The record is a 161-nucleotide sequence from Miscanthus lutarioriparius, which matches "Collinsella-1 RNA" in Rfam.
RNA sequence: UGUAGGGGAGGCUGUGGGCGGCUGGUAAUAAGAGCCUCCCCUACAAAUCAAUUUGUAGGGCGGCUGAAACACCAGCCGCCCUACAAAUCAAUUUGUAGGGGCGGCUGAAACACCAGCCGCCCCUACAAAUCGAUUUGUAGGGGCGGCCUGGGAACCGCCCC
Numbered sequence: 001u002g003u004a005g006g007g008g009a010g011g012c013u014g015u016g017g018g019c020g021g022c023u024g025g026u027a028a029u030a031a032g033a034g035c036c037u038c039c040c041c042u043a044c045a046a047a048u049c050a051a052u053u054u055g056u057a058g059g060g061c062g063g064c065u066g067a068a069a070c071a072c073c074a075g076c077c078g079c080c081c082u083a084c085a086a087a088u089c090a091a092u093u094u095g096u097a098g099g100g101g102c103g104g105c106u107g108a109a110a111c112a113c114c115a116g117c118c119g120c121c122c123c124u125a126c127a128a129a130u131c132g133a134u135u136u137g138u139a140g141g142g143g144c145g146g147c148c149u150g151g152g153a154a155c156c157g158c159c160c161c
Base pairs, nucleotide, nucleotide: 001045002044003043004042006041007039008038009037010036011035012034013033014029015028017026019024053086054085055084056083057082058081060079061078062077063076064075065074093128094127095126096125097124098123099122100121104117105116106115107114140161141160142159143158144157145156146155

It is annotated as a small RNA.
Pairs were carried over by alignment from the consensus structure, which is taken from published work.
The family has 6 seed sequences and 21 matches in Rfam 15.1.